[Rfam]
RNA sequence: GCUGUUUUCGGGUGGAUGACGUUGCAAUUUUAGCAAUCCUUUGUGGAAAAAAAAUUGCACGGUAUCCAUCUGUAAUCCGCC
Numbered sequence: 001g002c003u004g005u006u007u008u009c010g011g012g013u014g015g016a017u018g019a020c021g022u023u024g025c026a027a028u029u030u031u032a033g034c035a036a037u038c039c040u041u042u043g044u045g046g047a048a049a050a051a052a053a054a055u056u057g058c059a060c061g062g063u064a065u066c067c068a069u070c071u072g073u074a075a076u077c078c079g080c081c
Stems, first nucleotide, its partner, number of pairs: 009072009019063002023059009
Shown here is an 81-nucleotide RNA from Atractosteus spatula, a member of the family "mir-363 microRNA precursor family". The family is grouped with related families in Rfam's "mir-19 clan". Gene Ontology terms of the family: miRNA-mediated post-transcriptional gene silencing and RISC complex. A reference for the family is Linsen et al. (2010), "Small RNA expression and strain specificity in the rat", BMC Genomics. The base pairs follow the family's consensus structure, which was predicted with RNAalifold. The organism belongs to Atractosteus, within Eukaryota.